drz-agam-1 ribozyme: a 79-nucleotide sequence from Hermetia illucens.
RNA sequence: UACUAACAAAUCCUAUCUCCACCUCCACGUGGUGACCGCUGGGCGCCCUUUCUUAACGAAAAGGUGCAGACGGAAAAGG
Numbered sequence: 001u002a003c004u005a006a007c008a009a010a011u012c013c014u015a016u017c018u019c020c021a022c023c024u025c026c027a028c029g030u031g032g033u034g035a036c037c038g039c040u041g042g043g044c045g046c047c048c049u050u051u052c053u054u055a056a057c058g059a060a061a062a063g064g065u066g067c068a069g070a071c072g073g074a075a076a077a078g079g
Stems, first nucleotide, its partner, number of pairs: 012079003016075001018073002021033003044066004049061004
Dot-bracket structure: ...........(((.(.((.(((.......)))..........((((.((((.....)))).)))).....)).).)))
It scores 46 bits against the family's covariance model.
For this family Rfam cites "Widespread occurrence of self-cleaving ribozymes" (Webb et al., Science, 2009).
Pairs were carried over by alignment from the consensus structure, which is taken from published work.
The family has 7 seed sequences and 10,507 matches in Rfam 15.1.